The family of this 85-nucleotide RNA sequence from Cynoglossus semilaevis is "mir-301 microRNA precursor family". It scores 73 bits against the family's covariance model. The family's consensus secondary structure was predicted with WAR. On this family, see Houbaviy et al., Dev Cell 2003: "Embryonic stem cell-specific MicroRNAs".
RNA sequence: AAAAGUCAGCUGCUUUGACGAUGUUGCACUACUGUACCAUCCACUAAAGCAGUGCAAUAGUAUUGUCAUGGCAUUGGGCUUUGGC
Dot-bracket structure: .(((..(.(.((((.((((...((((((((...(.......)........))))))))......)))).)))).).)..)))...
Numbered sequence: 001a002a003a004a005g006u007c008a009g010c011u012g013c014u015u016u017g018a019c020g021a022u023g024u025u026g027c028a029c030u031a032c033u034g035u036a037c038c039a040u041c042c043a044c045u046a047a048a049g050c051a052g053u054g055c056a057a058u059a060g061u062a063u064u065g066u067c068a069u070g071g072c073a074u075u076g077g078g079c080u081u082u083g084g085c
Stems, first nucleotide, its partner, number of pairs: 002082003007077001009075001011073004016068004023058008034042001